[Rfam]
RNA sequence: CAGCUGACGCGUAGACCCUUCUCUUCGAGUAUUUGACAGACUGUGUGUGACACUCGCUUGUACUGGGUGUCAGUUUGUCAAAUACCCCAAGAGAGGGGUCAUUACUC
Numbered sequence: 001c002a003g004c005u006g007a008c009g010c011g012u013a014g015a016c017c018c019u020u021c022u023c024u025u026c027g028a029g030u031a032u033u034u035g036a037c038a039g040a041c042u043g044u045g046u047g048u049g050a051c052a053c054u055c056g057c058u059u060g061u062a063c064u065g066g067g068u069g070u071c072a073g074u075u076u077g078u079c080a081a082a083u084a085c086c087c088c089a090a091g092a093g094a095g096g097g098g099u100c101a102u103u104a105c106u107c
Stems, first nucleotide, its partner, number of pairs: 021093004027087001029085014049071004054066002
The record is a 107-nucleotide sequence from Electrophorus electricus, which matches "mir-223 microRNA precursor family" in Rfam. NCBI's taxonomy places the organism under Eukaryota, Metazoa, Deuterostomia, Otomorpha, Electrophorus. The literature on the family includes a 2003 paper in Science by Lim et al., "Vertebrate microRNA genes". Its family is annotated with miRNA-mediated post-transcriptional gene silencing and RISC complex in the Gene Ontology. A search with the family's covariance model found it, with a score of 76 bits.